[Rfam]
RNA sequence: AAGUGAAGGUCCCAGCAGAGGGUUAUUCGAUAAAGUUGAAAACUCUCUAACAUUAUAACCUUCAGAAAUGCAUUAUGCCAUGCCGUACAAUGCUUGAAUGAUUGUCUGUAUUUCAAAGCAUUUUAAUCCAUGGCUACAUGCCU
Numbered sequence: 001a002a003g004u005g006a007a008g009g010u011c012c013c014a015g016c017a018g019a020g021g022g023u024u025a026u027u028c029g030a031u032a033a034a035g036u037u038g039a040a041a042a043c044u045c046u047c048u049a050a051c052a053u054u055a056u057a058a059c060c061u062u063c064a065g066a067a068a069u070g071c072a073u074u075a076u077g078c079c080a081u082g083c084c085g086u087a088c089a090a091u092g093c094u095u096g097a098a099u100g101a102u103u104g105u106c107u108g109u110a111u112u113u114c115a116a117a118g119c120a121u122u123u124u125a126a127u128c129c130a131u132g133g134c135u136a137c138a139u140g141c142c143u
Stems, first nucleotide, its partner, number of pairs: 004064006011020001013018001021046002026040005077134006089122002092119002094116005
The family of this 143-nucleotide RNA from Oryza sativa is "Small nucleolar RNA snoR145". The organism belongs to Oryza sativa, within Eukaryota. A reference for the family is Chen and Wu (2009), "Mining small RNA sequencing data: a new approach to identify small nucleolar RNAs in Arabidopsis", Nucleic Acids Res. Pairs were carried over by alignment from the consensus structure, which was predicted with mfold. A search with the family's covariance model found it, with a score of 63 bits. Rfam links the family to the GO terms nucleolus and RNA processing.